About this RNA: This 80-nucleotide sequence from Alsobacter metallidurans belongs to the Rfam family "CyVA-1 RNA". Cyanobacteria, Acidobacteria (1 example), Verrucomicrobia (1 example).
RNA sequence: CGUGGGGCGGCCGCGUUUUUGCUGUUUCCGCUGCCUUGCCGUAAGCCGAAGCAGAACAGCGUCAGGCGAACGGACCCGCG
Numbered sequence: 001c002g003u004g005g006g007g008c009g010g011c012c013g014c015g016u017u018u019u020u021g022c023u024g025u026u027u028c029c030g031c032u033g034c035c036u037u038g039c040c041g042u043a044a045g046c047c048g049a050a051g052c053a054g055a056a057c058a059g060c061g062u063c064a065g066g067c068g069a070a071c072g073g074a075c076c077c078g079c080g
Stems, first nucleotide, its partner, number of pairs: 001080006009035003013031001040072003045067003

Pairs were carried over by alignment from the consensus structure, which is taken from published work. It scores 44 bits against the family's covariance model.